[Rfam]
Shown here is a 120-nucleotide RNA from Hoeflea marina, a member of the family "Rhizobiales sRNA Atu_C8".
RNA sequence: GAUCACUGCAGCAAACCUUAUUGUGGUACGACCGCGCAUGGGCAGGGUGGCAUAGCCGCCCGGCGAAAGCUCCCAUGCGCGACAACAGGCUCCGGAAGGAGCCUUUUUUUAUGGCUUGAA
Numbered sequence: 001g002a003u004c005a006c007u008g009c010a011g012c013a014a015a016c017c018u019u020a021u022u023g024u025g026g027u028a029c030g031a032c033c034g035c036g037c038a039u040g041g042g043c044a045g046g047g048u049g050g051c052a053u054a055g056c057c058g059c060c061c062g063g064c065g066a067a068a069g070c071u072c073c074c075a076u077g078c079g080c081g082a083c084a085a086c087a088g089g090c091u092c093c094g095g096a097a098g099g100a101g102c103c104u105u106u107u108u109u110u111a112u113g114g115c116u117u118g119a120a
Base pairs, nucleotide, nucleotide: 007028009026030115032113033081034080035079036078037077038076039075040074041073042072045061046060047059048058049057050056063070064069085105087104088103089102090101091100092099093098

Overview:
A search with the family's covariance model found it, with a score of 107 bits. By type it is a small RNA.